This 101-nucleotide RNA from Listeria fleischmannii belongs to the Rfam family "TPP riboswitch aptamer (THI element)". It scores 67 bits against the family's covariance model. The source organism's lineage runs through Bacteria, Bacillota, Bacilli, Listeriaceae and Listeria fleischmannii. The base pairs follow the family's consensus structure, which is taken from published work.
RNA sequence: CGUUACCACAGGGGGGGCUUUAAGCUGAGAUUGAGUGUUUCACUCUGACCCUUUGAACCUGUUCGUUAAUACGAGCGUAGGGAUUGUGGCGAUUGCAUUUU
Numbered sequence: 001c002g003u004u005a006c007c008a009c010a011g012g013g014g015g016g017g018c019u020u021u022a023a024g025c026u027g028a029g030a031u032u033g034a035g036u037g038u039u040u041c042a043c044u045c046u047g048a049c050c051c052u053u054u055g056a057a058c059c060u061g062u063u064c065g066u067u068a069a070u071a072c073g074a075g076c077g078u079a080g081g082g083a084u085u086g087u088g089g090c091g092a093u094u095g096c097a098u099u100u101u
Stems, first nucleotide, its partner, number of pairs: 006089005011052004016046001017025003033045004058081004062075004